[Rfam]
RNA sequence: UGAAUAGGAACUUCGCCUAAGAGCGCAACAUCCAUGUUGCAACGGCGAAGCCAGUACAUCCAUGUACG
Numbered sequence: 001u002g003a004a005u006a007g008g009a010a011c012u013u014c015g016c017c018u019a020a021g022a023g024c025g026c027a028a029c030a031u032c033c034a035u036g037u038u039g040c041a042a043c044g045g046c047g048a049a050g051c052c053a054g055u056a057c058a059u060c061c062a063u064g065u066a067c068g
Base pairs, nucleotide, nucleotide: 011050012049013048014047015046016045017044025040026039027038028037029036054067055066056065057064
Record summary:
Rfam assigns this 68-nucleotide RNA sequence from Ureibacillus endophyticus to the family "Bacillaceae-1 RNA". A search with the family's covariance model found it, with a score of 47 bits. The base pairs follow the family's consensus structure, which is taken from published work.